[Rfam]
Shown here is a 154-nucleotide RNA sequence from Pseudochrobactrum saccharolyticum, a member of the family "speF leader". Pairs were carried over by alignment from the consensus structure, which was predicted with RNAalifold. The literature on the family includes a 2005 paper in Genome Biol by Corbino et al., "Evidence for a second class of S-adenosylmethionine riboswitches and other regulatory RNA motifs in alpha-proteobacteria". Rfam's curators write: This family is a putative regulatory RNA structure that is found upstream of the speF gene encoding ornithine decarboxylase in Agrobacterium tumefaciens and other alpha-proteobacteria. The organism belongs to Pseudochrobactrum, within Bacteria. The match comes from Rfam's covariance-model search (66 bits).

RNA sequence: UUCCGGCUCUCCACAGGUCGGGAACUCAAAGAGGCACACCCUCAUUGCCCUAAGUGCGGAACCGGGUUUUUCCCAUUCCAAGCCAAGGCAGACAAAGCGGAAAAACGCUAAAUUCAGGGCGUUGAUCCAUCUGCAUAUGUAUUUGUUCCGUGUU
Numbered sequence: 001u002u003c004c005g006g007c008u009c010u011c012c013a014c015a016g017g018u019c020g021g022g023a024a025c026u027c028a029a030a031g032a033g034g035c036a037c038a039c040c041c042u043c044a045u046u047g048c049c050c051u052a053a054g055u056g057c058g059g060a061a062c063c064g065g066g067u068u069u070u071u072c073c074c075a076u077u078c079c080a081a082g083c084c085a086a087g088g089c090a091g092a093c094a095a096a097g098c099g100g101a102a103a104a105a106c107g108c109u110a111a112a113u114u115c116a117g118g119g120c121g122u123u124g125a126u127c128c129a130u131c132u133g134c135a136u137a138u139g140u141a142u143u144u145g146u147u148c149c150g151u152g153u154u
Stems, first nucleotide, its partner, number of pairs: 001023008033049004083091001100147002103144002